RNA: TUC338
Organism: Mauremys mutica
RNA sequence: UUGACAGCACUGGAAACUGAAGGCCUCUAUUUGUCCACAGAACAGGUACAGCACAGGCAGUGGCAGUGAAAAUUUCACCACACUGCCCUACCAGUGUGCCUCAACCCUAUUUUUGAGGGACCAUAUAGUAUGAGAGGGUUGUCCAGUAUCUAUUCCUAGUCAGCCUUUGGUGGCU
Number, nucleotide and partner (000 for none) at each position: 001u000002u162003g161004a160005c000006a000007g156008c000009a000010c000011u152012g151013g150014a149015a000016a147017c146018u145019g144020a000021a142022g000023g000024c138025c137026u000027c136028u135029a000030u134031u133032u132033g131034u130035c000036c000037a000038c000039a108040g107041a000042a000043c000044a000045g000046g000047u000048a101049c000050a000051g099052c098053a097054c096055a095056g000057g000058c000059a000060g000061u000062g087063g086064c085065a084066g083067u000068g000069a000070a000071a000072a000073u000074u000075u000076c000077a000078c000079c000080a000081c000082a000083c066084u065085g064086c063087c062088c000089u000090a000091c000092c000093a000094g000095u055096g054097u053098g052099c051100c000101u048102c000103a000104a000105c000106c000107c040108u039109a000110u000111u000112u127113u000114u125115g124116a000117g000118g000119g000120a000121c000122c000123a000124u115125a114126u000127a112128g000129u000130a034131u033132g032133a031134g030135a028136g027137g025138g024139u000140u000141g000142u021143c000144c019145a018146g017147u016148a000149u014150c013151u012152a011153u000154u000155c000156c007157u000158a000159g000160u004161c003162a002163g000164c000165c000166u000167u000168u000169g000170g000171u000172g000173g000174c000175u000